Notes: This 115-nucleotide RNA sequence from Sporolactobacillus shoreae belongs to the Rfam family "ylbH leader". It scores 65 bits against the family's covariance model. The pairing is the family consensus, mapped onto this sequence. Lineage of the source: Bacteria > Bacillota > Caryophanales > Sporolactobacillaceae > Sporolactobacillus. Gene Ontology term of the family: regulation of gene expression. Rfam describes the family as follows. This family is a putative regulatory RNA structure that is found upstream of the ylbH gene in B. subtilis and related low GC Gram-positive bacteria.

[Rfam]
RNA sequence: GUAAAAAAACCCGCAGAACUGACUGCGGGCCGUCUUUACGCAUCAGAUGAUGCAAGACAAUGGGAGAGGAGAAACCGGCGGAAAACUUAUGGGGAAACGUAAGUAUCCGCGGUUG
Numbered sequence: 001g002u003a004a005a006a007a008a009a010c011c012c013g014c015a016g017a018a019c020u021g022a023c024u025g026c027g028g029g030c031c032g033u034c035u036u037u038a039c040g041c042a043u044c045a046g047a048u049g050a051u052g053c054a055a056g057a058c059a060a061u062g063g064g065a066g067a068g069g070a071g072a073a074a075c076c077g078g079c080g081g082a083a084a085a086c087u088u089a090u091g092g093g094g095a096a097a098c099g100u101a102a103g104u105a106u107c108c109g110c111g112g113u114u115g
Stems, first nucleotide, its partner, number of pairs: 011028006030063004040053004076112001078110005085104005